[Rfam]
RNA sequence: AUUCACAUUCGGCGUGCGAUCCUGAAUAAUACGGCCCCGGUUUGCAUACCGGGAAUCCAAGGAGAGUUCAUGUAC
Number, nucleotide and partner (000 for none) at each position: 001a000002u000003u000004c000005a000006c000007a000008u000009u000010c000011g000012g000013c000014g000015u000016g000017c000018g000019a000020u000021c000022c000023u000024g000025a000026a000027u000028a000029a000030u000031a000032c000033g000034g000035c000036c053037c052038c051039g050040g049041u048042u000043u000044g000045c000046a000047u000048a041049c040050c039051g038052g037053g036054a000055a000056u000057c000058c000059a000060a000061g000062g000063a000064g000065a000066g000067u000068u000069c000070a000071u000072g000073u000074a000075c000
The record is a 75-nucleotide RNA sequence from Tenebrionibacter intestinalis, which matches "PyrD leader" in Rfam. The family's RNA type in Rfam is cis-regulatory leader. Rfam links the family to the GO term regulation of gene expression.